A member of the RNA family "Ribosomal protein L20 leader" from Vagococcus vulneris, 140 nucleotides long. The match comes from Rfam's covariance-model search (66 bits).
RNA sequence: AAAUUAAAGCAGAAGCACCCGCUUCUCGCCUAAAUUGCAAAAGUGAUUGGGCUGGAUAUUGAUAAUUCUUUUCGUUUUAGAACGUUAUAGAAUUUUUGGUGCGGGUUCUGUCUAAAGGGAACUCGUUUUUUUCUGUAUUU
Numbered sequence: 001a002a003a004u005u006a007a008a009g010c011a012g013a014a015g016c017a018c019c020c021g022c023u024u025c026u027c028g029c030c031u032a033a034a035u036u037g038c039a040a041a042a043g044u045g046a047u048u049g050g051g052c053u054g055g056a057u058a059u060u061g062a063u064a065a066u067u068c069u070u071u072u073c074g075u076u077u078u079a080g081a082a083c084g085u086u087a088u089a090g091a092a093u094u095u096u097u098g099g100u101g102c103g104g105g106u107u108c109u110g111u112c113u114a115a116a117g118g119g120a121a122c123u124c125g126u127u128u129u130u131u132u133c134u135g136u137a138u139u140u
Base pairs, nucleotide, nucleotide: 011026012025013024014023015022016021028052029051030050034047035046036045037044038043101126102125103124104123105122106121107120108119109118
On this family, see Zengel and Lindahl, Prog Nucleic Acid Res Mol Biol 1994: "Diverse mechanisms for regulating ribosomal protein synthesis in Escherichia coli". Gene Ontology term of the family: regulation of gene expression. By type it is a cis-regulatory leader.